[Rfam]
RNA sequence: UUUUUCAUUUGAGCGCCAGAUCCUAUGAGGAUGACGAGGUUAGUAGUUUAUCGAAAUAUUCGGCGGAUUCUACUACGGAUUUAAGUUAUUCGUUAGAUAUAUUUUAAAAAGUAAAAUCAAGAUUACAACAAAGAAAUAUAUCAGAACUAUU
Numbered sequence: 001u002u003u004u005u006c007a008u009u010u011g012a013g014c015g016c017c018a019g020a021u022c023c024u025a026u027g028a029g030g031a032u033g034a035c036g037a038g039g040u041u042a043g044u045a046g047u048u049u050a051u052c053g054a055a056a057u058a059u060u061c062g063g064c065g066g067a068u069u070c071u072a073c074u075a076c077g078g079a080u081u082u083a084a085g086u087u088a089u090u091c092g093u094u095a096g097a098u099a100u101a102u103u104u105u106a107a108a109a110a111g112u113a114a115a116a117u118c119a120a121g122a123u124u125a126c127a128a129c130a131a132a133g134a135a136a137u138a139u140a141u142c143a144g145a146a147c148u149a150u151u
Base pairs, nucleotide, nucleotide: 020032021031022030023029024028041075042074043073044072045071051063052062053061054060076092077091078090079089080088097141098140099139100138101137102136103135111126112125113124114123
RNA: glmS glucosamine-6-phosphate activated ribozyme aptamer
Organism: Mycoplasma sp. CAG:877